[Rfam]
RNA: t44 RNA
Organism: Aeromonas salmonicida
RNA sequence: CUUAAUCAAUAACACACACACAUCGACACCUGUACCGGGGUGCCCCUUUGGGGUCGGUUACAUGGGAUGUGUGGAGGCCUAAC
Numbered sequence: 001c002u003u004a005a006u007c008a009a010u011a012a013c014a015c016a017c018a019c020a021c022a023u024c025g026a027c028a029c030c031u032g033u034a035c036c037g038g039g040g041u042g043c044c045c046c047u048u049u050g051g052g053g054u055c056g057g058u059u060a061c062a063u064g065g066g067a068u069g070u071g072u073g074g075a076g077g078c079c080u081a082a083c
Stems, first nucleotide, its partner, number of pairs: 017073008029064001031062003034058004042054005
Dot-bracket structure: ................((((((((....(.(((((((....(((((...))))))))).))).).))))))))..........